[Rfam]
RNA sequence: CACAGCAUAUGACAACAUCUCUGGAAAAGCUUAAUAAAGCUUCAGAGAUGUUUGAUGAAGCUGGG
Numbered sequence: 001c002a003c004a005g006c007a008u009a010u011g012a013c014a015a016c017a018u019c020u021c022u023g024g025a026a027a028a029g030c031u032u033a034a035u036a037a038a039g040c041u042u043c044a045g046a047g048a049u050g051u052u053u054g055a056u057g058a059a060g061c062u063g064g065g
Stems, first nucleotide, its partner, number of pairs: 001065001003063003014052010029040003
Annotation
The family of this 65-nucleotide RNA from Pocillopora damicornis is "Selenocysteine insertion sequence 1". The base pairs follow the family's consensus structure, which is taken from published work. Its family is annotated with selenocysteine incorporation in the Gene Ontology. The literature on the family includes a 2002 paper in Biochimie by Lambert et al., "A survey of metazoan selenocysteine insertion sequences". From the family's description: The incorporation of selenocysteine into a protein sequence is directed by an in-frame UGA codon (usually a stop codon) within the coding region of the mRNA. Selenoprotein mRNAs contain a conserved secondary structure in the 3' UTR that is required for the distinction of UGA stop from UGA selenocysteine.